[Rfam]
RNA sequence: UUUACCCUGGGGUGUACGUGACUAGGAUUUACGUCCCUGAGCCGAUAAGCAACAAACAAGGGUUAGUACUUGGUAGCUAUUGAGCAAGCUCGGCUCGUAUCGAGAAGCCUACGGUUAACAGUCUGAUCCGCCUUGAACCUACUGGUUCAAGGGUCAAAAUCCUAAACGGCACUCUGGGGUACCC
Number, nucleotide and partner (000 for none) at each position: 001u000002u000003u181004a180005c179006c178007c177008u176009g175010g174011g173012g172013u171014g170015u169016a000017c168018g167019u166020g000021a000022c000023u000024a000025g000026g000027a000028u000029u000030u000031a000032c000033g154034u153035c152036c151037c000038u149039g148040a147041g146042c145043c144044g000045a000046u000047a000048a000049g000050c000051a000052a000053c000054a000055a000056a000057c000058a000059a000060g129061g128062g127063u000064u125065a124066g123067u000068a000069c000070u120071u000072g119073g000074u117075a116076g115077c114078u113079a000080u000081u000082g000083a000084g108085c107086a000087a000088g000089c104090u103091c102092g101093g100094c000095u000096c000097g000098u000099a000100u093101c092102g091103a090104g089105a000106a000107g085108c084109c000110u000111a000112c000113g078114g077115u076116u075117a074118a000119c072120a070121g000122u000123c066124u065125g064126a000127u062128c061129c060130g000131c000132c000133u000134u000135g000136a000137a000138c000139c000140u000141a000142c000143u000144g043145g042146u041147u040148c039149a038150a000151g036152g035153g034154u033155c000156a000157a000158a000159a000160u000161c000162c000163u000164a000165a000166a019167c018168g017169g015170c014171a013172c012173u011174c010175u009176g008177g007178g006179g005180u004181a003182c000183c000184c000